[Rfam]
RNA: S10-Clostridia ribosomal protein leader
Organism: Gemmiger sp. An194
RNA sequence: UGAUAUGCGUUGAUGCGGGAGGUUGCCGUCACAAGACGGGUUUUUCCGCGGAGUAUGUCCGAUCUAGAACCGGGCGAAAG
Numbered sequence: 001u002g003a004u005a006u007g008c009g010u011u012g013a014u015g016c017g018g019g020a021g022g023u024u025g026c027c028g029u030c031a032c033a034a035g036a037c038g039g040g041u042u043u044u045u046c047c048g049c050g051g052a053g054u055a056u057g058u059c060c061g062a063u064c065u066a067g068a069a070c071c072g073g074g075c076g077a078a079a080g
Base pairs, nucleotide, nucleotide: 015049016048017047019046020045021044022043026039027038028037029036030035056079058077059076063074064073065072